[Rfam]
RNA: Plastid-ycf2 5UTR RNA
Nucleotides: 075
Stems, first nucleotide, its partner, number of pairs: 004074005010026005040069003044066008
Number, partner (000 for none) and nucleotide at each position: 001000a002000u003000g004074c005073a006072u007071c008070u009000a010026g011025u012024a013023g014022g015000g016000a017000u018000u019000g020000a021000a022014u023013c024012u025011a026010c027000g028000a029000a030000u031000u032000c033000a034000c035000c036000a037000a038000u039000u040069a041068u042067g043000a044066g045065u046064u047063g048062g049061g050060u051059g052000c053000u054000u055000u056000a057000a058000c059051c060050a061049u062048u063047c064046a065045a066044c067042c068041a069040u070008g071007g072006a073005u074004g075000a